[Rfam]
The family of this 80-nucleotide sequence from Halpernia frigidisoli is "Flavo-1 RNA".
NCBI's taxonomy places the organism under Bacteria, Pseudomonadati, Flavobacteriales, Weeksellaceae, Halpernia.

RNA sequence: UAAUAGCCCCGAUUGAAACGGCAUCCUUUUUAUUUUUUUUUGAAAAAAAUAAAAAGAUAUAGUGGAAAGCGGGAAGACAU
Numbered sequence: 001u002a003a004u005a006g007c008c009c010c011g012a013u014u015g016a017a018a019c020g021g022c023a024u025c026c027u028u029u030u031u032a033u034u035u036u037u038u039u040u041u042g043a044a045a046a047a048a049a050u051a052a053a054a055a056g057a058u059a060u061a062g063u064g065g066a067a068a069g070c071g072g073g074a075a076g077a078c079a080u
Base pairs, nucleotide, nucleotide: 009072010071011070013068014067018063019062023058024057025056029053030052031051032050033049034048035047036046037045038044